[Rfam]
Shown here is an 83-nucleotide RNA sequence from Lingula anatina, a member of the family "mir-184 microRNA precursor family".

RNA sequence: GUUGCCACGUUUCCUUAUCACUUCUUCUCGCCCGGUCUGUACUUGAGGAACUGGACGGAGAACUGAUAAGGGCUUGUGGCUAA
Numbered sequence: 001g002u003u004g005c006c007a008c009g010u011u012u013c014c015u016u017a018u019c020a021c022u023u024c025u026u027c028u029c030g031c032c033c034g035g036u037c038u039g040u041a042c043u044u045g046a047g048g049a050a051c052u053g054g055a056c057g058g059a060g061a062a063c064u065g066a067u068a069a070g071g072g073c074u075u076g077u078g079g080c081u082a083a
Base pairs, nucleotide, nucleotide: 012072013071014070015069016068017067018066019065020064022062023061024060025059026058027057031054032053
NCBI's taxonomy places the organism under Eukaryota, Bilateria, Lophotrochozoa, Linguloidea, Lingula.